Background: The record is a 143-nucleotide RNA from Cohnella sp. CIP 111063, which matches "c-di-AMP riboswitch aptamer (ydaO/yuaA leader)" in Rfam. NCBI's taxonomy places the organism under Bacteria, Bacillati, Bacillota, Caryophanales, Cohnella.
[Rfam]
Nucleotides: 143
Stems, first nucleotide, its partner, number of pairs: 011127003018040009041122006051058002059107003067083004086101004
Number, partner (000 for none) and nucleotide at each position: 001000a002000g003000u004000u005000a006000u007000a008000a009000c010000a011127c012126g013125c014000u015000u016000a017000g018040u019039u020038u021037u022036c023035g024034g025033c026032g027000c028000u029000c030000g031000u032026c033025g034024u035023c036022g037021a038020a039019a040018a041122g042121c043120g044119g045118g046117g047000g048000a049000a050000c051058c052057a053000c054000u055000u056000u057052u058051g059107g060106g061105g062000c063000g064000a065000a066000u067083c068082g069081u070080u071000c072000g073000c074000a075000u076000a077000u078000c079000g080070a081069a082068c083067g084000u085000a086101g087100g088099g089098a090000g091000a092000c093000c094000a095000u096000c097000u098089u099088c100087c101086c102000g103000a104000g105061u106060c107059c108000g109000u110000c111000a112000g113000c114000u115000a116000a117046c118045c119044u120043c121042g122041u123000c124000u125013g126012c127011g128000g129000a130000a131000g132000a133000u134000g135000g136000g137000u138000c139000u140000a141000u142000a143000u